[Rfam]
The record is a 125-nucleotide RNA sequence from Cicer arietinum, which matches "Small nucleolar RNA snoR77" in Rfam. Rfam 15.1 lists 649 matches to the family in 221 species.
RNA sequence: AGGCAGCCUCCUUGAUACAAUUAUAUAUCAUGUGAGGUGUUUAACUGCUCGUAAAUCAAAUGCUUUUGCUCUUCAGACUUGCUGAGAUUUUUCUUUGAAGCUGGUCUAGUAAGCUCAAGUAUAAU
Numbered sequence: 001a002g003g004c005a006g007c008c009u010c011c012u013u014g015a016u017a018c019a020a021u022u023a024u025a026u027a028u029c030a031u032g033u034g035a036g037g038u039g040u041u042u043a044a045c046u047g048c049u050c051g052u053a054a055a056u057c058a059a060a061u062g063c064u065u066u067u068g069c070u071c072u073u074c075a076g077a078c079u080u081g082c083u084g085a086g087a088u089u090u091u092u093c094u095u096u097g098a099a100g101c102u103g104g105u106c107u108a109g110u111a112a113g114c115u116c117a118a119g120u121a122u123a124a125u
Stems, first nucleotide, its partner, number of pairs: 002041004007037002009034001011032001013030005063119003068114003075107005081101003086093002
Pairs were carried over by alignment from the consensus structure, which was predicted with WAR.